[Rfam]
RNA sequence: UGGCGCCCAAACGUGGGGCUUGAGGUAUGAAAUGUGACCUGGACGUCGCUCAAGUGGACAUCCGUCACCCCCACUGGAUCGCCACCUCAUCGGUGAGUGAAGAUCCGCAUGCAGAUCACCGCAGGAGUGCCCACCUGUGAUACAGAUCUGCCGAGGUAAGAAAAGCGAUGCAAUUAUGGGACAAGCAUUAAGUAAGCAUGAAUUGUUUGUUGAAGGGCUUAAAACUUCUCUCAAGACACAAGGAACAUGGGUUAAGAAAAAAGAUUUAGGGAAAUUCUUUGUCUUUUUAGAAGAUGUCUGUCCCU
Dot-bracket structure: .....(.(....(((..........))).....).)..................................................................(((((........((..(((((..........))))).....)).....)).))).......(...(.((....)).).).......(.(.(...............................).)..).......(((((((...(((((.........))))).......)))))))........(..(((....)))..)
Numbered sequence: 001u002g003g004c005g006c007c008c009a010a011a012c013g014u015g016g017g018g019c020u021u022g023a024g025g026u027a028u029g030a031a032a033u034g035u036g037a038c039c040u041g042g043a044c045g046u047c048g049c050u051c052a053a054g055u056g057g058a059c060a061u062c063c064g065u066c067a068c069c070c071c072c073a074c075u076g077g078a079u080c081g082c083c084a085c086c087u088c089a090u091c092g093g094u095g096a097g098u099g100a101a102g103a104u105c106c107g108c109a110u111g112c113a114g115a116u117c118a119c120c121g122c123a124g125g126a127g128u129g130c131c132c133a134c135c136u137g138u139g140a141u142a143c144a145g146a147u148c149u150g151c152c153g154a155g156g157u158a159a160g161a162a163a164a165g166c167g168a169u170g171c172a173a174u175u176a177u178g179g180g181a182c183a184a185g186c187a188u189u190a191a192g193u194a195a196g197c198a199u200g201a202a203u204u205g206u207u208u209g210u211u212g213a214a215g216g217g218c219u220u221a222a223a224a225c226u227u228c229u230c231u232c233a234a235g236a237c238a239c240a241a242g243g244a245a246c247a248u249g250g251g252u253u254a255a256g257a258a259a260a261a262a263g264a265u266u267u268a269g270g271g272a273a274a275u276u277c278u279u280u281g282u283c284u285u286u287u288u289a290g291a292a293g294a295u296g297u298c299u300g301u302c303c304c305u
Stems, first nucleotide, its partner, number of pairs: 006036001008034001013028003103157003106153002116146002120139005165182001169180001171178002190231001192228001194226001239281007249267005290305001293302003